[Rfam]
RNA sequence: AGGCUUUUAAUCGUCGGGCUUGCAGCCUAUAUCCGGACAGUCGUCGGGGGAAUUCUCUCUUGGCGACUAUGGCGAUAAACCGUGGCGUGUCAUAGACACAGCGGACCCGGGGGCAGUACCCGGCGACUCCACCACCGCCCUCUUCGCAAGAGGGGGACGAUGACGGGGUCGAACUAGGAUCGACGUGUGUUCAACGACGCUAUGUUUCGCUCGGAAUGGGACCACCGCAACGGCCCAUACACAAGUGCCAACGAUAACGAAGCACUCGCAAUUGCCGCAUAACUGACGGUCUAACGACCUAGGUUAUACGGACGAAAGCGCGGUUCGGGCCGCACCGGGCAACAGAAGCGGAAACC
Numbered sequence: 001a002g003g004c005u006u007u008u009a010a011u012c013g014u015c016g017g018g019c020u021u022g023c024a025g026c027c028u029a030u031a032u033c034c035g036g037a038c039a040g041u042c043g044u045c046g047g048g049g050g051a052a053u054u055c056u057c058u059c060u061u062g063g064c065g066a067c068u069a070u071g072g073c074g075a076u077a078a079a080c081c082g083u084g085g086c087g088u089g090u091c092a093u094a095g096a097c098a099c100a101g102c103g104g105a106c107c108c109g110g111g112g113g114c115a116g117u118a119c120c121c122g123g124c125g126a127c128u129c130c131a132c133c134a135c136c137g138c139c140c141u142c143u144u145c146g147c148a149a150g151a152g153g154g155g156g157a158c159g160a161u162g163a164c165g166g167g168g169u170c171g172a173a174c175u176a177g178g179a180u181c182g183a184c185g186u187g188u189g190u191u192c193a194a195c196g197a198c199g200c201u202a203u204g205u206u207u208c209g210c211u212c213g214g215a216a217u218g219g220g221a222c223c224a225c226c227g228c229a230a231c232g233g234c235c236c237a238u239a240c241a242c243a244a245g246u247g248c249c250a251a252c253g254a255u256a257a258c259g260a261a262g263c264a265c266u267c268g269c270a271a272u273u274g275c276c277g278c279a280u281a282a283c284u285g286a287c288g289g290u291c292u293a294a295c296g297a298c299c300u301a302g303g304u305u306a307u308a309c310g311g312a313c314g315a316a317a318g319c320g321c322g323g324u325u326c327g328g329g330c331c332g333c334a335c336c337g338g339g340c341a342a343c344a345g346a347a348g349c350g351g352a353a354a355c356c
Stems, first nucleotide, its partner, number of pairs: 040067012071211005082203007097189003101186003107123005124171007212227003217237003222233002321337004330350001
Rfam assigns this 356-nucleotide RNA from Sphingomonas sp. Leaf20 to the family "Alphaproteobacteria transfer-messenger RNA". It is annotated as a non-coding RNA gene. Bacterial tmRNA, also known as 10Sa RNA or SsrA, is named for its dual tRNA and mRNA-like properties.